A member of the RNA family "mir-1285 microRNA precursor family" from Piliocolobus tephrosceles, 61 nucleotides long. A search with the family's covariance model found it, with a score of 58 bits. The organism belongs to Piliocolobus, within Eukaryota.
RNA sequence: UGGGAGCAUCACUUGGGCCCAGGAGUUUGAGACCAGCCUGGGCAACAAAGUGAGACCUCGU
Numbered sequence: 001u002g003g004g005a006g007c008a009u010c011a012c013u014u015g016g017g018c019c020c021a022g023g024a025g026u027u028u029g030a031g032a033c034c035a036g037c038c039u040g041g042g043c044a045a046c047a048a049a050g051u052g053a054g055a056c057c058u059c060g061u
Stems, first nucleotide, its partner, number of pairs: 009053006017043007027036003